Rfam assigns this 171-nucleotide sequence from Oryza punctata to the family "MIR7725 microRNA precursor family".
RNA sequence: UUAACCGGCCGCAUGGAAAAACGAUCUUUCCAUGCGGUCCUCUUAAAUGGCCGCAUGGAAAGAUCGUUUUUCCAUGCGGCUAUUUAAGAGGACCGCAUGGAAAGAUCGUUUUUCCAUGCGGCCGGUUAAGAGGACCGCAUGGAAAGAUCGUUUUUCCAUGCGGCCGGUUAA
Dot-bracket structure: .((.((((((.(((((((.((((((((((((((((((.((((.(((.((((((((.((..(((.((........................................)).))).)).)))))))).))).)))).)))))))))))))))))).))))))).)))))).)).

The base pairs follow the family's consensus structure, which was predicted with RNAalifold. It scores 77 bits against the family's covariance model. Taxonomically the source falls in Oryza (Eukaryota, Streptophytina, Magnoliopsida, Poaceae). Rfam links the family to the GO terms miRNA-mediated post-transcriptional gene silencing and RISC complex.